Shown here is a 356-nucleotide sequence from Candidatus Xenolissoclinum pacificiensis, a member of the family "Bacterial RNase P class A". Rfam describes the family as follows. Ribonuclease P (RNase P) is a ubiquitous endoribonuclease, found in archaea, bacteria and eukarya as well as chloroplasts and mitochondria. NCBI's taxonomy places the organism under Bacteria, Pseudomonadota, Alphaproteobacteria, Anaplasmataceae, Candidatus Xenolissoclinum pacificiensis. Rfam links the family to the GO terms dimeric ribonuclease P complex, tRNA processing and ribonuclease P activity.
RNA sequence: CUGGAACAGUGGGUGGUUGCUAUGAACCAAUAUGGUUAGACCUUUCUUGCUAUAUUGCUAGUAGAGGAAAGUCCGGACUUCACUGAAAGACAACGGCGGAUAACGUCCGCGAAGGAAACUUACGGUUAGGGCCACAGAAAAUAUACCGCUUUUUAGCAAGGGUGAAAAGGUGUGGUAAGAGCGCACCGGGUCUGUGGUAACACAGAUUGCAUGGUAACCCCCGUUGGAAGCAAGCCUAAAUUUGAUAUCAUAGCUCUUUCAGGCUUAUCAGGGUAAGGCGCUUGAGGGUCAUAAUAAUAUGAUUCCCAGAUGAAUAACCACUUAAACAGAAUCCGGCUUAUAGCUGUUCCUGUUAU
Numbered sequence: 001c002u003g004g005a006a007c008a009g010u011g012g013g014u015g016g017u018u019g020c021u022a023u024g025a026a027c028c029a030a031u032a033u034g035g036u037u038a039g040a041c042c043u044u045u046c047u048u049g050c051u052a053u054a055u056u057g058c059u060a061g062u063a064g065a066g067g068a069a070a071g072u073c074c075g076g077a078c079u080u081c082a083c084u085g086a087a088a089g090a091c092a093a094c095g096g097c098g099g100a101u102a103a104c105g106u107c108c109g110c111g112a113a114g115g116a117a118a119c120u121u122a123c124g125g126u127u128a129g130g131g132c133c134a135c136a137g138a139a140a141a142u143a144u145a146c147c148g149c150u151u152u153u154u155a156g157c158a159a160g161g162g163u164g165a166a167a168a169g170g171u172g173u174g175g176u177a178a179g180a181g182c183g184c185a186c187c188g189g190g191u192c193u194g195u196g197g198u199a200a201c202a203c204a205g206a207u208u209g210c211a212u213g214g215u216a217a218c219c220c221c222c223g224u225u226g227g228a229a230g231c232a233a234g235c236c237u238a239a240a241u242u243u244g245a246u247a248u249c250a251u252a253g254c255u256c257u258u259u260c261a262g263g264c265u266u267a268u269c270a271g272g273g274u275a276a277g278g279c280g281c282u283u284g285a286g287g288g289u290c291a292u293a294a295u296a297a298u299a300u301g302a303u304u305c306c307c308a309g310a311u312g313a314a315u316a317a318c319c320a321c322u323u324a325a326a327c328a329g330a331a332u333c334c335g336g337c338u339u340a341u342a343g344c345u346g347u348u349c350c351u352g353u354u355a356u
Stems, first nucleotide, its partner, number of pairs: 001352001003350008011341001012322007020064004025059001027057001069339003073336005078230004087259003091226005096110005111123001112121003124221002129219002131215003146161002148157003169187006188210001189208008234279004243270005254262002286305008
Pairs were carried over by alignment from the consensus structure, which is taken from published work.